The record is an 82-nucleotide RNA from Sipha flava, which matches "mir-184 microRNA precursor family" in Rfam.
The match comes from Rfam's covariance-model search (64 bits).
The literature on the family includes a 2005 paper in Genes Dev by Chen et al., "The developmental miRNA profiles of zebrafish as determined by small RNA cloning".
RNA sequence: UAUAUUACUCUCCUUUAUCAUUCUCUUGUCUUGUGUGCAUUUUUAACUACUGGACGGAGAACUGAUAAAGGUGAGUGGUAUG
Numbered sequence: 001u002a003u004a005u006u007a008c009u010c011u012c013c014u015u016u017a018u019c020a021u022u023c024u025c026u027u028g029u030c031u032u033g034u035g036u037g038c039a040u041u042u043u044u045a046a047c048u049a050c051u052g053g054a055c056g057g058a059g060a061a062c063u064g065a066u067a068a069a070g071g072u073g074a075g076u077g078g079u080a081u082g
Base pairs, nucleotide, nucleotide: 012071013070014069015068016067017066018065019064020063021061022060023059024058025057026056029053030052